[Rfam]
MIR844 microRNA precursor family: a 110-nucleotide sequence from Cannabis sativa.
The family has 2 seed sequences and 4 matches in Rfam 15.1.
Its family is annotated with miRNA-mediated post-transcriptional gene silencing and RISC complex in the Gene Ontology.
The base pairs follow the family's consensus structure, which was predicted with RNAalifold.
RNA sequence: UGUAGGAGGCGAAUGAGUAGAGGAGUACUGUAGGAGGCGAAUGAGUAGAGGAGUGUACUCCUCUACUCAUUCGCCUCCUACAGUACUCCUCUACUCAUUCGCCUCCUACA
Numbered sequence: 001u002g003u004a005g006g007a008g009g010c011g012a013a014u015g016a017g018u019a020g021a022g023g024a025g026u027a028c029u030g031u032a033g034g035a036g037g038c039g040a041a042u043g044a045g046u047a048g049a050g051g052a053g054u055g056u057a058c059u060c061c062u063c064u065a066c067u068c069a070u071u072c073g074c075c076u077c078c079u080a081c082a083g084u085a086c087u088c089c090u091c092u093a094c095u096c097a098u099u100c101g102c103c104u105c106c107u108a109c110a
Stems, first nucleotide, its partner, number of pairs: 002109002006105031040071003047064007